[Rfam]
RNA: Small nucleolar RNA U109
RNA sequence: CUGCAUGUUAAAAAAAAUAGACAAUUCUGCUCCUUGCUUCCUUAAGGAGCAUGAAUACAUCUAUAACAUGCUACAGAAAGCAAGGAGUCUUCAGGGCUGCCGGCCUUGAAGUAAAGGCUGAGCGGUAGUAUAUGUCUCCUACAUCU
Numbered sequence: 001c002u003g004c005a006u007g008u009u010a011a012a013a014a015a016a017a018u019a020g021a022c023a024a025u026u027c028u029g030c031u032c033c034u035u036g037c038u039u040c041c042u043u044a045a046g047g048a049g050c051a052u053g054a055a056u057a058c059a060u061c062u063a064u065a066a067c068a069u070g071c072u073a074c075a076g077a078a079a080g081c082a083a084g085g086a087g088u089c090u091u092c093a094g095g096g097c098u099g100c101c102g103g104c105c106u107u108g109a110a111g112u113a114a115a116g117g118c119u120g121a122g123c124g125g126u127a128g129u130a131u132a133u134g135u136c137u138c139c140u141a142c143a144u145c146u
Stems, first nucleotide, its partner, number of pairs: 003071006026053001028051006084139004096126002100122001101120007